[Rfam]
RNA: Group II catalytic intron D1-D4-6
RNA sequence: AGAAACCAGCCUGACAAAGUUAGCCGACCGUCAGAACCGAGUUUUGCAUUUAUACGGGUAAUCGUAUGAGUGAAGCGUAAACAGGGUGACCGCAGGCCGUAAUGCAAAAGCGUGAAGGUGUUCAGUCCCGAAAAUACUUAUGUUGUGGAGCAAGCCCAAGUGAUUAAGAACACUGAAGGCAGCAACGAAGCCAUCGUUACAGGCGAGAAGGCGGAUACUCCACCGGGGUCAUAGUCCA
Numbered sequence: 001a002g003a004a005a006c007c008a009g010c011c012u013g014a015c016a017a018a019g020u021u022a023g024c025c026g027a028c029c030g031u032c033a034g035a036a037c038c039g040a041g042u043u044u045u046g047c048a049u050u051u052a053u054a055c056g057g058g059u060a061a062u063c064g065u066a067u068g069a070g071u072g073a074a075g076c077g078u079a080a081a082c083a084g085g086g087u088g089a090c091c092g093c094a095g096g097c098c099g100u101a102a103u104g105c106a107a108a109a110g111c112g113u114g115a116a117g118g119u120g121u122u123c124a125g126u127c128c129c130g131a132a133a134a135u136a137c138u139u140a141u142g143u144u145g146u147g148g149a150g151c152a153a154g155c156c157c158a159a160g161u162g163a164u165u166a167a168g169a170a171c172a173c174u175g176a177a178g179g180c181a182g183c184a185a186c187g188a189a190g191c192c193a194u195c196g197u198u199a200c201a202g203g204c205g206a207g208a209a210g211g212c213g214g215a216u217a218c219u220c221c222a223c224c225g226g227g228g229u230c231a232u233a234g235u236c237c238a
Base pairs, nucleotide, nucleotide: 011034012033013032014031019028020027021206023204024203037085038084041082042081043080044079045077046076047072048071049070050069051068052067053066054065055064056063057062125229126228127227128226129225130224145223146222147221148220149219150218154180155179156178159174160173161172162171190212191211192210194208195207